A member of the RNA family "Purine riboswitch aptamer" from Niallia taxi, 102 nucleotides long. A search with the family's covariance model found it, with a score of 87 bits. Rfam's curators write: Riboswitches are metabolite binding domains within certain messenger RNAs that serve as precision sensors for their corresponding targets. Gene Ontology term of the family: purine nucleobase biosynthetic process.
RNA sequence: ACAAAACUAAAUAGUGUUUUUCAUAUAAUCGUGGGGAUAUGGCCUACAAGUUUCUACCUGUUUACCGUAAAUAAACUGACUAUGAAAAGCAAAAAGAAUGGU
Numbered sequence: 001a002c003a004a005a006a007c008u009a010a011a012u013a014g015u016g017u018u019u020u021u022c023a024u025a026u027a028a029u030c031g032u033g034g035g036g037a038u039a040u041g042g043c044c045u046a047c048a049a050g051u052u053u054c055u056a057c058c059u060g061u062u063u064a065c066c067g068u069a070a071a072u073a074a075a076c077u078g079a080c081u082a083u084g085a086a087a088a089g090c091a092a093a094a095a096g097a098a099u100g101g102u
Stems, first nucleotide, its partner, number of pairs: 018088008029049001031047005058078001060076005